RNA sequence: CCUCUGCUGUGAUGAAACAUGAAACACUUGGCUGGCAUGUCAGACUUUAGAGAUUUUUUUGUCAAAAAAUCCAUUCGAAGAAAAUUUAGUUUCAGAUCAGAGA
Dot-bracket structure: .(((((.............................................(((((((......)))))))..........................))))).
Numbered sequence: 001c002c003u004c005u006g007c008u009g010u011g012a013u014g015a016a017a018c019a020u021g022a023a024a025c026a027c028u029u030g031g032c033u034g035g036c037a038u039g040u041c042a043g044a045c046u047u048u049a050g051a052g053a054u055u056u057u058u059u060u061g062u063c064a065a066a067a068a069a070u071c072c073a074u075u076c077g078a079a080g081a082a083a084a085u086u087u088a089g090u091u092u093c094a095g096a097u098c099a100g101a102g103a
Stems, first nucleotide, its partner, number of pairs: 002102005052071007